Source information:
The record is a 436-nucleotide part of an RNA from a Theionarchaea archaeon, which matches "Archaeal large subunit ribosomal RNA" in Rfam. The family's consensus secondary structure is taken from published work.
Nucleotides: 436
Base pairs, nucleotide, nucleotide: 001377002376003375004374005373006372011024012023013022014021015020026134027132028131029130030129031128032127036120037119038118040117041116042115043114044113045112046111047110052105053103054102059098060097061096063094064093065092066091067090068089072087073086074085075084076083077082138162139161140160141159142158143157144156145155146154167178168177169176182351183350184349185348186347187346188345192341193340194339201338203337204336206334207333208332218312219311222309223308224307225306226305228303229302230301231300239296240295241294242293243292245269246268247267250264251263252262270274275290279288280287352367353366354363355362356361378431380428381427382426383425384424385423386422387421388420389419396415397414398413399412401410402409403408
Number, partner (000 for none) and nucleotide at each position: 001377c002376u003375u004374c005373c006372c007000g008000a009000a010000a011024u012023g013022a014021g015020c016000c017000g018000u019000a020015g021014u022013u023012c024011a025000g026134c027132c028131u029130g030129g031128a032127g033000c034000g035000a036120g037119a038118c039000a040117g041116u042115u043114g044113g045112u046111a047110g048000a049000g050000u051000a052105g053103a054102g055000c056000a057000c058000u059098g060097a061096u062000u063094g064093g065092g066091u067090g068089u069000u070000u071000a072087g073086g074085g075084g076083g077082a078000g079000a080000a081000a082077u083076c084075u085074c086073u087072c088000g089068g090067c091066a092065c093064c094063c095000u096061g097060u098059c099000a100000a101000a102054c103053u104000c105052c106000g107000a108000a109000u110047u111046u112045a113044u114043c115042a116041g117040c118038g119037u120036c121000g122000u123000a124000g125000a126000c127032c128031u129030c130029c131028g132027g133000a134026g135000u136000g137000a138162g139161u140160g141159g142158u143157g144156u145155g146154g147000g148000g149000u150000a151000a152000g153000c154146u155145c156144a157143c158142a159141u160140u161139g162138c163000a164000a165000a166000a167178g168177g169176g170000a171000a172000a173000c174000a175000a176169c177168c178167c179000a180000a181000c182351c183350c184349a185348g186347a187346g188345u189000u190000a191000a192341g193340g194339c195000c196000c197000c198000u199000a200000a201338g202000c203337g204336c205000u206334g207333g208332c209000u210000a211000a212000g213000u214000c215000a216000a217000a218312g219311g220000a221000u222309g223308u224307c225306c226305u227000c228303a229302g230301c231300c232000c233000u234000a235000u236000a237000c238000a239296g240295c241294g242293g243292g244000g245269a246268g247267g248000u249000a250264a251263g252262c253000u254000u255000a256000g257000a258000a259000g260000c261000a262252g263251c264250u265000a266000u267247c268246c269245u270274u271000c272000a273000a274270a275290g276000a277000g278000u279288g280287c281000g282000u283000a284000a285000c286000a287280g288279c289000u290275c291000a292243c293242c294241c295240g296239u297000c298000u299000a300231g301230g302229u303228u304000a305226a306225g307224g308223g309222c310000g311219c312218c313000u314000a315000a316000a317000a318000u319000g320000g321000a322000g323000g324000g325000g326000a327000a328000u329000c330000a331000a332208g333207c334206c335000c336204g337203c338201c339194g340193c341192c342000g343000a344000u345188a346187c347186u348185c349184u350183g351182g352367a353366a354363c355362a356361c357000g358000a359000a360000a361356g362355u363354g364000a365000u366353u367352u368000g369000g370000u371000a372006g373005g374004g375003a376002a377001g378431c379000g380428u381427c382426u383425c384424g385423g386422u387421a388420g389419g390000g391000c392000a393000g394000a395000a396415g397414c398413u399412g400000c401410u402409g403408c404000g405000a406000g407000a408403g409402c410401a411000a412399c413398a414397g415396u416000g417000g418000a419389c420388c421387u422386g423385c424384c425383g426382g427381g428380a429000u430000u431378g432000a433000g434000a435000a436000u

Taxonomically the source falls in Theionarchaea (Archaea, Methanobacteriati, Methanobacteriota).